[Rfam]
Background
Shown here is an 87-nucleotide RNA from Vagococcus entomophilus, a member of the family "BsrC". Rfam 15.1 lists 572 matches to the family in 553 species.
RNA sequence: UCUCGUUUAGCCGGUAUAAACCCUACCUCUUUUAUACCCUUGUAGCCCUUUAGCUACGCCAGUCUUGAUUAAACUUCAUCAAAAUAA
Numbered sequence: 001u002c003u004c005g006u007u008u009a010g011c012c013g014g015u016a017u018a019a020a021c022c023c024u025a026c027c028u029c030u031u032u033u034a035u036a037c038c039c040u041u042g043u044a045g046c047c048c049u050u051u052a053g054c055u056a057c058g059c060c061a062g063u064c065u066u067g068a069u070u071a072a073a074c075u076u077c078a079u080c081a082a083a084a085u086a087a
Stems, first nucleotide, its partner, number of pairs: 036065001039062002041058006